RNA: Small Cajal body specific RNA 11
RNA sequence: UUGUCCUGGCCUAUACUUUCUCUGCUCCCCUGUACUCAGUUGUAACAGAGGAGUAUGACAGGACACACAGCAGUCUCCCCCUCAGUUUAGGAUGGCCAUCCUGGCUCUUAAAGGCAUGAGAGGACAAU
Numbered sequence: 001u002u003g004u005c006c007u008g009g010c011c012u013a014u015a016c017u018u019u020c021u022c023u024g025c026u027c028c029c030c031u032g033u034a035c036u037c038a039g040u041u042g043u044a045a046c047a048g049a050g051g052a053g054u055a056u057g058a059c060a061g062g063a064c065a066c067a068c069a070g071c072a073g074u075c076u077c078c079c080c081c082u083c084a085g086u087u088u089a090g091g092a093u094g095g096c097c098a099u100c101c102u103g104g105c106u107c108u109u110a111a112a113g114g115c116a117u118g119a120g121a122g123g124a125c126a127a128u
Stems, first nucleotide, its partner, number of pairs: 002065007011057001024054003028050001030048004078123002081120003085115004091109002094106004